[Rfam]
RNA: bZIP non canonical Hac1/Xbp1 intron
Organism: Clathrospora elynae
RNA sequence: UCCCCGACUUCGACUCGACACAAUACUCUGCCGCGGUAUUGUGCGACCUGCAGUGUCAGUCGAUUUCGGGA
Numbered sequence: 001u002c003c004c005c006g007a008c009u010u011c012g013a014c015u016c017g018a019c020a021c022a023a024u025a026c027u028c029u030g031c032c033g034c035g036g037u038a039u040u041g042u043g044c045g046a047c048c049u050g051c052a053g054u055g056u057c058a059g060u061c062g063a064u065u066u067c068g069g070g071a
Stems, first nucleotide, its partner, number of pairs: 001071004006066002011062005022040006045057003